The family of this 59-nucleotide RNA from Streptomyces sp. MS191 is "msiK RNA". A search with the family's covariance model found it, with a score of 53 bits. It is annotated as a cis-regulatory element. The organism belongs to Streptomyces, within Bacteria.
RNA sequence: CCCAUCCUUCCUUCCACUCGGAUCGUCCGGCACGUUCCUGCCGGUGAAGGGAUACAUCA
Numbered sequence: 001c002c003c004a005u006c007c008u009u010c011c012u013u014c015c016a017c018u019c020g021g022a023u024c025g026u027c028c029g030g031c032a033c034g035u036u037c038c039u040g041c042c043g044g045u046g047a048a049g050g051g052a053u054a055c056a057u058c059a
Stems, first nucleotide, its partner, number of pairs: 010051004015046002027044006